Notes: mir-2162 microRNA precursor family: a 75-nucleotide RNA sequence from Fasciolopsis buskii. A search with the family's covariance model found it, with a score of 71 bits. The organism belongs to Fasciolopsis, within Eukaryota. Rfam 15.1 lists 9 matches to the family in 9 species.
[Rfam]
Nucleotides: 075
Base pairs, nucleotide, nucleotide: 001073002072004070006068007067010064011063012062013061014060015059016058017057018056020055021054022053023052024051025050026049027048029047031045032044033043035042036041
Number, partner (000 for none) and nucleotide at each position: 001073u002072u003000g004070g005000u006068g007067g008000a009000u010064g011063a012062g013061u014060g015059g016058g017057a018056u019000g020055g021054u022053u023052g024051c025050a026049u027048a028000c029047a030000g031045a032044c033043a034000a035042a036041g037000c038000u039000u040000u041036c042035u043033u044032g045031u046000a047029u048027u049026a050025u051024g052023c053022a054021a055020c056018a057017u058016u059015u060014c061013a062012c063011u064010c065000u066000a067007c068006c069000c070004c071000a072002a073001a074000g075000a